[Rfam]
RNA sequence: AACUGUUCUCAGGGCGGGGCGAAAUUCCCCACCGGCGGUAUAUGGAAACAUGAGCCCGCGAGCGCCUCAAUCGAGGGUCAGCAGAUCGGGUGAGAUGCCCGAGCCGACAGUAUAGUCUGGAUGAAAGAGAACGAUC
Numbered sequence: 001a002a003c004u005g006u007u008c009u010c011a012g013g014g015c016g017g018g019g020c021g022a023a024a025u026u027c028c029c030c031a032c033c034g035g036c037g038g039u040a041u042a043u044g045g046a047a048a049c050a051u052g053a054g055c056c057c058g059c060g061a062g063c064g065c066c067u068c069a070a071u072c073g074a075g076g077g078u079c080a081g082c083a084g085a086u087c088g089g090g091u092g093a094g095a096u097g098c099c100c101g102a103g104c105c106g107a108c109a110g111u112a113u114a115g116u117c118u119g120g121a122u123g124a125a126a127g128a129g130a131a132c133g134a135u136c
Stems, first nucleotide, its partner, number of pairs: 004133007017029003031116002033106002035059004054104002062082002086102005108119003